[Rfam]
RNA: Bacteroidales-2 RNA
RNA sequence: GCACGUUCCGGAUCUUUUCCAAUCCGACAGCUAACAGUAAGGCGGUGGGCGGCUGGUGAUUAUGGGCAUAACAUUGGCAAUGCUCUUUUCUCAAGCUCCGUGCGGACUGUUUUUCCGCUACCGUGCAUUUUAUCUCCGUGCGCACAAGGGCGCAAUUAUGGCAUUAUUCUUGCACGUCCUUUUCAGUGGCGGUAUUCUCAAUACUCCCAGCGACUUGCCAAGGUCUUGACGUAUUUCCGGCACUCGGAAUAAAUACGAUUUAUCCCGUUCCAUAAAUUUCCCUACUUUCGUAGGUUGGCAAUACUGGUAUUAUUGCCCCGUGCGAAGCGUGGUUAUUUAACGCACUCUUUAAGCGUACCUAAACGCACACGGUGUUGUUUCGGGUGUUACCCUUUGACGGCUCAACAACUCACUUUCGUGUAAACGCCGUUUUUGUU
Numbered sequence: 001g002c003a004c005g006u007u008c009c010g011g012a013u014c015u016u017u018u019c020c021a022a023u024c025c026g027a028c029a030g031c032u033a034a035c036a037g038u039a040a041g042g043c044g045g046u047g048g049g050c051g052g053c054u055g056g057u058g059a060u061u062a063u064g065g066g067c068a069u070a071a072c073a074u075u076g077g078c079a080a081u082g083c084u085c086u087u088u089u090c091u092c093a094a095g096c097u098c099c100g101u102g103c104g105g106a107c108u109g110u111u112u113u114u115c116c117g118c119u120a121c122c123g124u125g126c127a128u129u130u131u132a133u134c135u136c137c138g139u140g141c142g143c144a145c146a147a148g149g150g151c152g153c154a155a156u157u158a159u160g161g162c163a164u165u166a167u168u169c170u171u172g173c174a175c176g177u178c179c180u181u182u183u184c185a186g187u188g189g190c191g192g193u194a195u196u197c198u199c200a201a202u203a204c205u206c207c208c209a210g211c212g213a214c215u216u217g218c219c220a221a222g223g224u225c226u227u228g229a230c231g232u233a234u235u236u237c238c239g240g241c242a243c244u245c246g247g248a249a250u251a252a253a254u255a256c257g258a259u260u261u262a263u264c265c266c267g268u269u270c271c272a273u274a275a276a277u278u279u280c281c282c283u284a285c286u287u288u289c290g291u292a293g294g295u296u297g298g299c300a301a302u303a304c305u306g307g308u309a310u311u312a313u314u315g316c317c318c319c320g321u322g323c324g325a326a327g328c329g330u331g332g333u334u335a336u337u338u339a340a341c342g343c344a345c346u347c348u349u350u351a352a353g354c355g356u357a358c359c360u361a362a363a364c365g366c367a368c369a370c371g372g373u374g375u376u377g378u379u380u381c382g383g384g385u386g387u388u389a390c391c392c393u394u395u396g397a398c399g400g401c402u403c404a405a406c407a408a409c410u411c412a413c414u415u416u417c418g419u420g421u422a423a424a425c426g427c428c429g430u431u432u433u434u435g436u437u
Stems, first nucleotide, its partner, number of pairs: 009026005052096002054093003102118004122176004140153004185244004190239001201234004207307004245267003249263006297318002299315003319371004327343004353366004397430005412419002